The record is a 75-nucleotide RNA sequence from Colocasia esculenta, which matches "mir-190 microRNA precursor family" in Rfam. On this family, see Kloosterman et al., Nucleic Acids Res 2006: "Cloning and expression of new microRNAs from zebrafish". NCBI's taxonomy places the organism under Eukaryota, Tracheophyta, Alismatales, Colocasieae, Colocasia. It scores 50 bits against the family's covariance model. The base pairs follow the family's consensus structure, which was predicted with RNAalifold.
Nucleotides: 075
Stems, first nucleotide, its partner, number of pairs: 005071005012064015028048005
Number, partner (000 for none) and nucleotide at each position: 001000g002000a003000a004000a005071c006070c007069g008068u009067c010000u011000a012064c013063a014062u015061a016060u017059g018058u019057u020056a021055g022054a023053u024052a025051c026050g027000u028048a029047g030046a031045c032044g033000g034000c035000u036000u037000u038000u039000u040000a041000a042000g043000c044032c045031g046030u047029c048028u049000a050026c051025g052024u053023a054022u055021c056020u057019a058018a059017c060016a061015u062014a063013u064012g065000u066000a067009g068008a069007c070006g071005g072000u073000c074000u075000u